[Rfam]
RNA sequence: UGUCUCCUCCACCUCUCCUUGGUGGAUUCAACCCGGUCUAUUGGAUCGGGUUUUUUUUU
Numbered sequence: 001u002g003u004c005u006c007c008u009c010c011a012c013c014u015c016u017c018c019u020u021g022g023u024g025g026a027u028u029c030a031a032c033c034c035g036g037u038c039u040a041u042u043g044g045a046u047c048g049g050g051u052u053u054u055u056u057u058u059u
Stems, first nucleotide, its partner, number of pairs: 008026006030052008